[Rfam]
RNA: Lysine riboswitch aptamer
RNA sequence: AGUGAUGAUAGAGGUGCGGAUUUUAUCAGUAGGUCACUAGAGGAGUAUGAGCUCCGAGGAAGGUGAUUGAAAGGAAAGGCCGCCGAAGUGAAAAGGAACUCAUAUCAAUUUUCGCUGGUUUUGCGUUGAAUAAACGUAGGACUGUCAAGAUUCUUAGCAGUCUUGGAGAGCUAUCUCACGC
Numbered sequence: 001a002g003u004g005a006u007g008a009u010a011g012a013g014g015u016g017c018g019g020a021u022u023u024u025a026u027c028a029g030u031a032g033g034u035c036a037c038u039a040g041a042g043g044a045g046u047a048u049g050a051g052c053u054c055c056g057a058g059g060a061a062g063g064u065g066a067u068u069g070a071a072a073g074g075a076a077a078g079g080c081c082g083c084c085g086a087a088g089u090g091a092a093a094a095g096g097a098a099c100u101c102a103u104a105u106c107a108a109u110u111u112u113c114g115c116u117g118g119u120u121u122u123g124c125g126u127u128g129a130a131u132a133a134a135c136g137u138a139g140g141a142c143u144g145u146c147a148a149g150a151u152u153c154u155u156a157g158c159a160g161u162c163u164u165g166g167a168g169a170g171c172u173a174u175c176u177c178a179c180g181c
Base pairs, nucleotide, nucleotide: 007175008174009173010172011171016083017082018081019080021078022077023076024075032068033067034066035065036064037063038062087116088115089114090113091112092111093110094109098105117143118142119141120140121139122138123137124136125135126134127133145166146165147164148163149162150161151160